[Rfam]
RNA sequence: CUAGCACUUUCACAGGUCCUCCCCGGGCAGUGGGGCCGGGACUUGGUAGCUGGUGCUUAAAGGAAACCCGUGGCGGCAUCCUUGCCCUGGAGCUGUGCCGGUGGCAUCUGUCACUCAGCAGGGCGGAG
Numbered sequence: 001c002u003a004g005c006a007c008u009u010u011c012a013c014a015g016g017u018c019c020u021c022c023c024c025g026g027g028c029a030g031u032g033g034g035g036c037c038g039g040g041a042c043u044u045g046g047u048a049g050c051u052g053g054u055g056c057u058u059a060a061a062g063g064a065a066a067c068c069c070g071u072g073g074c075g076g077c078a079u080c081c082u083u084g085c086c087c088u089g090g091a092g093c094u095g096u097g098c099c100g101g102u103g104g105c106a107u108c109u110g111u112c113a114c115u116c117a118g119c120a121g122g123g124c125g126g127a128g
Stems, first nucleotide, its partner, number of pairs: 003057006013045003017041004021035004067122002071117003076112001078111002083106004087101004
RNA: Small nucleolar RNA SNORA30/SNORA37 family